[Rfam]
RNA sequence: AGCCUCCCGUGAUGCAGAAAUGCCCUGGGAUGACCAUGACCUGCCGGGUUGUAUUCGUACUGUCUGACGGAGGCC
Number, nucleotide and partner (000 for none) at each position: 001a000002g074003c073004c072005u071006c070007c069008c000009g000010u000011g064012a063013u062014g061015c000016a000017g000018a000019a055020a054021u053022g052023c051024c048025c047026u000027g045028g044029g000030a000031u000032g041033a000034c000035c000036a000037u000038g000039a000040c000041c032042u000043g000044c028045c027046g000047g025048g024049u000050u000051g023052u022053a021054u020055u019056c000057g000058u000059a000060c000061u014062g013063u012064c011065u000066g000067a000068c000069g007070g006071a005072g004073g003074c002075c000
The record is a 75-nucleotide RNA sequence from Oryctolagus cuniculus, which matches "Small nucleolar RNA ZL2" in Rfam. The organism belongs to Oryctolagus, within Eukaryota. The family has 6 seed sequences and 126 matches in Rfam 15.1. A reference for the family is Kishore et al. (2013), "Insights into snoRNA biogenesis and processing from PAR-CLIP of snoRNA core proteins and small RNA sequencing", Genome Biol.